Rfam assigns this 89-nucleotide RNA sequence from Vallitalea guaymasensis to the family "skipping-rope RNA".
Rfam classes the family as a small RNA.
RNA sequence: GUUAUUUGAGGGCAGAACAGGCAGCUGCCACGCCUAUAUUUUUUAUAGGUCUGAAAAGAGAUGUAGGAUACGCCUCCCUACCAAAUAAC
Numbered sequence: 001g002u003u004a005u006u007u008g009a010g011g012g013c014a015g016a017a018c019a020g021g022c023a024g025c026u027g028c029c030a031c032g033c034c035u036a037u038a039u040u041u042u043u044u045a046u047a048g049g050u051c052u053g054a055a056a057a058g059a060g061a062u063g064u065a066g067g068a069u070a071c072g073c074c075u076c077c078c079u080a081c082c083a084a085a086u087a088a089c
Base pairs, nucleotide, nucleotide: 001089002088003087004086005085006084007083008082011029012028013027014026015025019075020074021073022072031058032050033049034048035047036046037045038044063081064080065079066078067077